[Rfam]
RNA sequence: UCGUCAGGCUCAGUCCCCUCCCGAUAAACCUCUAAAUAGGGUCUUUCCCCAGGACGGCUCCGGUUU
Numbered sequence: 001u002c003g004u005c006a007g008g009c010u011c012a013g014u015c016c017c018c019u020c021c022c023g024a025u026a027a028a029c030c031u032c033u034a035a036a037u038a039g040g041g042u043c044u045u046u047c048c049c050c051a052g053g054a055c056g057g058c059u060c061c062g063g064u065u066u
Base pairs, nucleotide, nucleotide: 003064004063005062007060008059010057011056013055014054015053016052023047024046026045027044030041031040032039033038

The record is a 66-nucleotide RNA from Microtus ochrogaster, which matches "mir-484 microRNA precursor family" in Rfam. NCBI's taxonomy places the organism under Eukaryota, Bilateria, Dipnotetrapodomorpha, Myomorpha, Microtus. For this family Rfam cites "Deciphering the porcine intestinal microRNA transcriptome" (Sharbati et al., BMC Genomics, 2010). The match comes from Rfam's covariance-model search (66 bits).